A member of the RNA family "mir-550 microRNA precursor family" from Homo sapiens, 85 nucleotides long. The family's consensus secondary structure was predicted with RNAalifold. Rfam's curators put it in the seed alignment.
RNA sequence: GACUUGUUGGAGAUGUGCCUGAGGGAGUAAGACACUAUCUUACAACAACAGGGCUCUUACUCCCUCAGGCACUGCACCAGCCAGC
Numbered sequence: 001g002a003c004u005u006g007u008u009g010g011a012g013a014u015g016u017g018c019c020u021g022a023g024g025g026a027g028u029a030a031g032a033c034a035c036u037a038u039c040u041u042a043c044a045a046c047a048a049c050a051g052g053g054c055u056c057u058u059a060c061u062c063c064c065u066c067a068g069g070c071a072c073u074g075c076a077c078c079a080g081c082c083a084g085c
Stems, first nucleotide, its partner, number of pairs: 003084002006081001008079003012075001015072018036052001038050001040048001